RNA sequence: AUUUGAGGACGACCUCAUUUCAUCGCUUCGUUUGGGGACGGCCCC
Number, nucleotide and partner (000 for none) at each position: 001a018002u017003u000004u000005g016006a015007g014008g013009a000010c000011g000012a000013c008014c007015u006016c005017a002018u001019u000020u000021c000022a000023u000024c000025g000026c000027u000028u000029c000030g000031u000032u000033u000034g045035g044036g043037g042038a000039c000040g000041g000042c037043c036044c035045c034
RNA: Guanidine-II riboswitch aptamer (mini-ykkC)
Organism: Thiobacillus sp.